RNA sequence: UGCCUUUGUGUUGCCCUUUCAGUGUCUCCAUCCUGAAUGGGGUGUCAUCCAAGGCAUACAUAGACUCUUGUGGUUGUCCAUGAGUUGUCAUUUAUGAUUCCUCUGACAGGAGCUGCUGCAAGGACAUGU
Numbered sequence: 001u002g003c004c005u006u007u008g009u010g011u012u013g014c015c016c017u018u019u020c021a022g023u024g025u026c027u028c029c030a031u032c033c034u035g036a037a038u039g040g041g042g043u044g045u046c047a048u049c050c051a052a053g054g055c056a057u058a059c060a061u062a063g064a065c066u067c068u069u070g071u072g073g074u075u076g077u078c079c080a081u082g083a084g085u086u087g088u089c090a091u092u093u094a095u096g097a098u099u100c101c102u103c104u105g106a107c108a109g110g111a112g113c114u115g116c117u118g119c120a121a122g123g124a125c126a127u128g129u
Stems, first nucleotide, its partner, number of pairs: 002055005009047002012044004016039001018037005067122004073116002076113002083104002087098002
RNA: Small nucleolar RNA SNORA13